[Rfam]
RNA sequence: UAUAUAAAAAGGCCGAAUCUCCGGUGGAACCGGAGUACGGGGGAUUAAAUCCAAUAUGGGGUGAAUCCGCAAACCUUUUUCGGAGGUGUCAAAAGGUGCGGUAGGGUGCCCUUCCAACCCGAACCCGUCAACUAACCUCGAAGGCCAAAGGAGGGCAAAA
Numbered sequence: 001u002a003u004a005u006a007a008a009a010a011g012g013c014c015g016a017a018u019c020u021c022c023g024g025u026g027g028a029a030c031c032g033g034a035g036u037a038c039g040g041g042g043g044a045u046u047a048a049a050u051c052c053a054a055u056a057u058g059g060g061g062u063g064a065a066u067c068c069g070c071a072a073a074c075c076u077u078u079u080u081c082g083g084a085g086g087u088g089u090c091a092a093a094a095g096g097u098g099c100g101g102u103a104g105g106g107u108g109c110c111c112u113u114c115c116a117a118c119c120c121g122a123a124c125c126c127g128u129c130a131a132c133u134a135a136c137c138u139c140g141a142a143g144g145c146c147a148a149a150g151g152a153g154g155g156c157a158a159a160a
Base pairs, nucleotide, nucleotide: 011146012145013144014143019035020034021033022032023031024030025029038140039139040138041137042136048057059126060125061124067101068100069099070098104120105119106118107117
Notes: c-di-AMP riboswitch aptamer (ydaO/yuaA leader): a 160-nucleotide RNA sequence from Desulforamulus profundi. A search with the family's covariance model found it, with a score of 83 bits.